The record is a 127-nucleotide sequence from Jaculus jaculus, which matches "Small nucleolar RNA SNORA31" in Rfam. A reference for the family is Huttenhofer et al. (2001), "RNomics: an experimental approach that identifies 201 candidates for novel, small, non-messenger RNAs in mouse", EMBO J. The family's RNA type in Rfam is H/ACA-box small nucleolar RNA.

[Rfam]
RNA sequence: CUGCAUCCACUGAUAGACCGGGAACAGUUUGUGGUUCUUUUGGUUUGCACUAGGAUGCAAAAGUAAAGAAUCCCUGCGCUUUCUGUCUGUCGGUGUGGCAGCCUAGAUUGAAUGGGGGAGUACAUCA
Numbered sequence: 001c002u003g004c005a006u007c008c009a010c011u012g013a014u015a016g017a018c019c020g021g022g023a024a025c026a027g028u029u030u031g032u033g034g035u036u037c038u039u040u041u042g043g044u045u046u047g048c049a050c051u052a053g054g055a056u057g058c059a060a061a062a063g064u065a066a067a068g069a070a071u072c073c074c075u076g077c078g079c080u081u082u083c084u085g086u087c088u089g090u091c092g093g094u095g096u097g098g099c100a101g102c103c104u105a106g107a108u109u110g111a112a113u114g115g116g117g118g119a120g121u122a123c124a125u126c127a
Base pairs, nucleotide, nucleotide: 002059003058004057005056006055007054008053011049012048014047015046016045017044018043019042022037023036024035025034027032071119072118073117074116075115079110082107083106084105085104087101088100089099090098091097
NCBI's taxonomy places the organism under Eukaryota, Dipnotetrapodomorpha, Amniota, Theria, Jaculus. It scores 120 bits against the family's covariance model. ACA31 (SNORA31) belongs to the H/ACA class of snoRNAs which are thought to guide the sites of modification of uridines to pseudouridines. ACA31 is predicted to guide the pseudouridylation of U3713 in 28S rRNA and U218 in 18S rRNA. This family includes the mouse homologue snoMBI-161. The base pairs follow the family's consensus structure, which was predicted with RNAalifold.